[Rfam]
RNA sequence: UUGCAGUGGGCAAGUCUUAUACGACCAGCUCCUGGCAAACCCUCCAGGGUCGGAAGGCAGCAAAGGUAGUCGGUUGUAGCGGUGCGAUAUAAGUAACUUGCCUUUCU
Numbered sequence: 001u002u003g004c005a006g007u008g009g010g011c012a013a014g015u016c017u018u019a020u021a022c023g024a025c026c027a028g029c030u031c032c033u034g035g036c037a038a039a040c041c042c043u044c045c046a047g048g049g050u051c052g053g054a055a056g057g058c059a060g061c062a063a064a065g066g067u068a069g070u071c072g073g074u075u076g077u078a079g080c081g082g083u084g085c086g087a088u089a090u091a092a093g094u095a096a097c098u099u100g101c102c103u104u105u106c107u
Stems, first nucleotide, its partner, number of pairs: 008103008017092005022086002024083002
Rfam assigns this 107-nucleotide RNA to the family "Bacteroidales small SRP". A search with the family's covariance model found it, with a score of 101 bits. Its family is annotated with SRP-dependent cotranslational protein targeting to membrane, signal sequence recognition and signal recognition particle, plasma membrane targeting in the Gene Ontology. Its Rfam clan is "SRP clan".